[Rfam]
Shown here is a 204-nucleotide sequence from Varanus komodoensis, a member of the family "Small nucleolar RNA SNORA74". By type it is an H/ACA-box small nucleolar RNA. Rfam 15.1 lists 1,348 matches to the family in 628 species. The family is grouped with related families in Rfam's "SNORA74 clan". For this family Rfam cites "The family of box ACA small nucleolar RNAs is defined by an evolutionarily conserved secondary structure and ubiquitous sequence elements essential for RNA accumulation" (Ganot et al., Genes Dev, 1997). The match comes from Rfam's covariance-model search (93 bits). NCBI's taxonomy places the organism under Eukaryota, Episquamata, Anguimorpha, Varanidae, Varanus. Rfam links the family to the GO terms nucleolus and RNA processing. The base pairs follow the family's consensus structure, which was predicted with PFOLD.
RNA sequence: UCCAGCGAUAGUCAGCUGUCUUUCAAUACUGUGUCUGUGACAGUGUUACACUGCUGGGAGAUAAAAGUACACUCUUUUUUUAGCUGUGUGUCAUUGCCUGCGUUCUGGAGGUGACUGGCACCAGUGUGGGGCAGUGCUGUGCUUCUCUGAGAGUGUGCAGAGCAGAUAACCAUCCUGCUCAGCACUAGUCUGGAAGCAUACACA
Numbered sequence: 001u002c003c004a005g006c007g008a009u010a011g012u013c014a015g016c017u018g019u020c021u022u023u024c025a026a027u028a029c030u031g032u033g034u035c036u037g038u039g040a041c042a043g044u045g046u047u048a049c050a051c052u053g054c055u056g057g058g059a060g061a062u063a064a065a066a067g068u069a070c071a072c073u074c075u076u077u078u079u080u081u082a083g084c085u086g087u088g089u090g091u092c093a094u095u096g097c098c099u100g101c102g103u104u105c106u107g108g109a110g111g112u113g114a115c116u117g118g119c120a121c122c123a124g125u126g127u128g129g130g131g132c133a134g135u136g137c138u139g140u141g142c143u144u145c146u147c148u149g150a151g152a153g154u155g156u157g158c159a160g161a162g163c164a165g166a167u168a169a170c171c172a173u174c175c176u177g178c179u180c181a182g183c184a185c186u187a188g189u190c191u192g193g194a195a196g197c198a199u200a201c202a203c204a
Stems, first nucleotide, its partner, number of pairs: 001058007009050001011049002015044006021037001023033001070136004075131003083127002087123001088121006095114001097111003101107001139199008155185003160180006